[Rfam]
Rfam assigns this 450-nucleotide part of an RNA from Halalkalicoccus jeotgali to the family "Archaeal large subunit ribosomal RNA". The base pairs follow the family's consensus structure, which is taken from published work.
RNA sequence: CCAGUCGAAACAUGUCGAAGCAUGACCUUUGUCGAGGUAGUUCGUGGGGUAGAGCGACCGAUUGGGGGACCGCACUCCGAGAGGAGUGCGCCCCCCUGUCAAACUCCGAACCUACGGACGCCGUUGACGCAAGGAAUCCGGUGUGCCGGGGUAAGCCUGUGCACCGUGAGGGAGACAACCCAGAGCUGGGUUAAGGUCCCCAAGUGUGAACUAAGUGCGAUUGAAGGUGGUCUCAAGCCCUAGACAGCCGGGAGGUGAGCUUAGAAGCAGCUACCCUCUAAGAAAAGCGUAACAGCUUACCGGCCGAGGUUUGAGGCGCCGAAAAUGAUCGGGGCUCAAGUUCACCACCGAGACCUAGCCGUACGCCUUACAGCGUAAUCGUGUAGACUGGCACUCCGAUCGGAUGGAAGUUCGGGCGAGAGCUCGCAUGGACCGAUCGGUGACGAAAAU
Numbered sequence: 001c002c003a004g005u006c007g008a009a010a011c012a013u014g015u016c017g018a019a020g021c022a023u024g025a026c027c028u029u030u031g032u033c034g035a036g037g038u039a040g041u042u043c044g045u046g047g048g049g050u051a052g053a054g055c056g057a058c059c060g061a062u063u064g065g066g067g068g069a070c071c072g073c074a075c076u077c078c079g080a081g082a083g084g085a086g087u088g089c090g091c092c093c094c095c096c097u098g099u100c101a102a103a104c105u106c107c108g109a110a111c112c113u114a115c116g117g118a119c120g121c122c123g124u125u126g127a128c129g130c131a132a133g134g135a136a137u138c139c140g141g142u143g144u145g146c147c148g149g150g151g152u153a154a155g156c157c158u159g160u161g162c163a164c165c166g167u168g169a170g171g172g173a174g175a176c177a178a179c180c181c182a183g184a185g186c187u188g189g190g191u192u193a194a195g196g197u198c199c200c201c202a203a204g205u206g207u208g209a210a211c212u213a214a215g216u217g218c219g220a221u222u223g224a225a226g227g228u229g230g231u232c233u234c235a236a237g238c239c240c241u242a243g244a245c246a247g248c249c250g251g252g253a254g255g256u257g258a259g260c261u262u263a264g265a266a267g268c269a270g271c272u273a274c275c276c277u278c279u280a281a282g283a284a285a286a287g288c289g290u291a292a293c294a295g296c297u298u299a300c301c302g303g304c305c306g307a308g309g310u311u312u313g314a315g316g317c318g319c320c321g322a323a324a325a326u327g328a329u330c331g332g333g334g335c336u337c338a339a340g341u342u343c344a345c346c347a348c349c350g351a352g353a354c355c356u357a358g359c360c361g362u363a364c365g366c367c368u369u370a371c372a373g374c375g376u377a378a379u380c381g382u383g384u385a386g387a388c389u390g391g392c393a394c395u396c397c398g399a400u401c402g403g404a405u406g407g408a409a410g411u412u413c414g415g416g417c418g419a420g421a422g423c424u425c426g427c428a429u430g431g432a433c434c435g436a437u438c439g440g441u442g443a444c445g446a447a448a449a450u
Stems, first nucleotide, its partner, number of pairs: 001391006011024005027134006036122003040119008052107001053105002060100003064096005073088006140165007148158002170181003185359007195349003204346001206345006226320003230317010247304005253277003258272003278282001283298001287296002360381002362377005392445001394442001396440008410429002413426005
Dot-bracket structure: ((((((....(((((....)))))..((((((...(((.((((((((....(((.....(((.(((((....((((((....))))))...))))).)))...)).)....)))))))))))......)))))).....(((((((.((.......)))))))))....(((......)))...(((((((...(((......(.((((((..............(((.((((((((((.......(((((.(((..(((.........)))..)))(...)(...((......)).).)))))...)))))))))))))...................))))))))))...)))))))(((((((......)))))..))....))))))(.(.((((((((......((.(((((....))))).))...)))))))).)..).....